About this RNA
A member of the RNA family "FMN riboswitch aptamer (RFN element)" from Lactobacillus psittaci, 117 nucleotides long. The base pairs follow the family's consensus structure, which is taken from published work. The organism belongs to Lactobacillus psittaci, within Bacteria.
[Rfam]
RNA sequence: AAUGUUCUUCGGGGCAGGGUGAAAUUCCCGACCGGCGGUAAAGUCCGCGACCCACGCAAGUGGUUGAAUCCUGAUUAUAGGUACCGAUAGUUAAAGUCUAGAUGGGAGAAGAUUAAU
Number, nucleotide and partner (000 for none) at each position: 001a000002a000003u115004g114005u000006u112007c111008u110009u109010c108011g000012g000013g000014g000015c000016a000017g029018g028019g027020u000021g000022a000023a000024a000025u000026u000027c019028c018029c017030g000031a097032c096033c086034g085035g048036c047037g046038g045039u000040a000041a000042a000043g084044u083045c038046c037047g036048c035049g000050a000051c000052c063053c062054a000055c000056g000057c000058a000059a000060g000061u000062g053063g052064u000065u000066g000067a000068a082069u081070c080071c000072u000073g000074a000075u000076u000077a000078u000079a000080g070081g069082u068083a044084c043085c034086g033087a000088u100089a099090g098091u000092u000093a000094a000095a000096g032097u031098c090099u089100a088101g000102a000103u000104g000105g000106g000107a000108g010109a009110a008111g007112a006113u000114u004115a003116a000117u000